small nucleolar RNA snoR137: a 141-nucleotide sequence from Hevea brasiliensis.
RNA sequence: GUUGCUUCUUUCUGGUGAACUCUUCCAAUUGAAGUGGAAGAUGUUCAUGUUUCCGAAGCAUAGAUUGAUAUCCAGUAUUAAACAACACUGUGUAUUUCUUUCUGUGUAUUUUCAUAGUGUUACCUGUCUCCUGGUACAUUU
Dot-bracket structure: ..((((((.......((((((((((...........))))).))))).......))))))...........((((.(......(((.(((((....................))))).))).......).)))).......

The family's RNA type in Rfam is H/ACA-box small nucleolar RNA. Pairs were carried over by alignment from the consensus structure, which was predicted with RNAalifold. For this family Rfam cites "Mining small RNA sequencing data: a new approach to identify small nucleolar RNAs in Arabidopsis" (Chen and Wu, Nucleic Acids Res, 2009).